Rfam assigns this 135-nucleotide sequence to the family "c-di-GMP-II-GAG riboswitch aptamer". Rfam links the family to the GO terms cyclic-di-GMP binding and regulation of gene expression. A reference for the family is Weinberg et al. (2017), "Bioinformatic analysis of riboswitch structures uncovers variant classes with altered ligand specificity", Proc Natl Acad Sci U S A. The family's consensus secondary structure is taken from published work.
[Rfam]
RNA sequence: CAGUGACACGGACGCAACGAUCCUCGGGCGCCACAGCUACACGGUCGCCCGUCGGGUCGACAGGGGCAUCCUAAGGGGCUUCCUGACGGCUCGAUGGCUCGAGGGGAGCGAGUGGCGAGACCGGCCGUGAGACGA
Numbered sequence: 001c002a003g004u005g006a007c008a009c010g011g012a013c014g015c016a017a018c019g020a021u022c023c024u025c026g027g028g029c030g031c032c033a034c035a036g037c038u039a040c041a042c043g044g045u046c047g048c049c050c051g052u053c054g055g056g057u058c059g060a061c062a063g064g065g066g067c068a069u070c071c072u073a074a075g076g077g078g079c080u081u082c083c084u085g086a087c088g089g090c091u092c093g094a095u096g097g098c099u100c101g102a103g104g105g106g107a108g109c110g111a112g113u114g115g116c117g118a119g120a121c122c123g124g125c126c127g128u129g130a131g132a133c134g135a
Stems, first nucleotide, its partner, number of pairs: 003133002007129005013110003022104008043122002045118005